[Rfam]
RNA sequence: ACUCCCUCCGUCCUAAUAUAUAAGGCGUAACCACUUUUUGUUUAUGUCUCAUAAUAUAAGGCGUGCUCUCUCACAUACAUCAAUGUAGUAGUACUAGUAUUGAGAGAGAGAAUUAAAUGUGUCCUUGGUCUUUGUACCAGAGGUGGUUACGUUAAAUACUAGGACGGAGGGAGU
Numbered sequence: 001a002c003u004c005c006c007u008c009c010g011u012c013c014u015a016a017u018a019u020a021u022a023a024g025g026c027g028u029a030a031c032c033a034c035u036u037u038u039u040g041u042u043u044a045u046g047u048c049u050c051a052u053a054a055u056a057u058a059a060g061g062c063g064u065g066c067u068c069u070c071u072c073a074c075a076u077a078c079a080u081c082a083a084u085g086u087a088g089u090a091g092u093a094c095u096a097g098u099a100u101u102g103a104g105a106g107a108g109a110g111a112a113u114u115a116a117a118u119g120u121g122u123c124c125u126u127g128g129u130c131u132u133u134g135u136a137c138c139a140g141a142g143g144u145g146g147u148u149a150c151g152u153u154a155a156a157u158a159c160u161a162g163g164a165c166g167g168a169g170g171g172a173g174u
Stems, first nucleotide, its partner, number of pairs: 001174015017158003021154003026151006033144006041136001043134002049128003066110007074102002079098002082095001084093003
A member of the RNA family "MIR6224 microRNA precursor family" from Miscanthus lutarioriparius, 174 nucleotides long. Pairs were carried over by alignment from the consensus structure, which was predicted with RNAalifold.